The record is a 63-nucleotide RNA sequence from Crocuta crocuta, which matches "Ma3 gene ribosomal frameshift signal" in Rfam. Gene Ontology term of the family: translational frameshifting. It scores 55 bits against the family's covariance model. Pairs were carried over by alignment from the consensus structure, which is taken from published work.
RNA sequence: GGGAAACGAGGAUGGGGCUGGGGGGAUGAGCUCCCCCAAGUCCUCCUCGGGCAAAUAGGCUCA
Dot-bracket structure: .............((((((.((((...[[[[[.)))).)))))).............]]]]].
Numbered sequence: 001g002g003g004a005a006a007c008g009a010g011g012a013u014g015g016g017g018c019u020g021g022g023g024g025g026a027u028g029a030g031c032u033c034c035c036c037c038a039a040g041u042c043c044u045c046c047u048c049g050g051g052c053a054a055a056u057a058g059g060c061u062c063a
Stems, first nucleotide, its partner, number of pairs: 014044006021037004028062005
Record summary
It is annotated as a frameshift element. The family has 12 seed sequences and 565 matches in Rfam 15.1.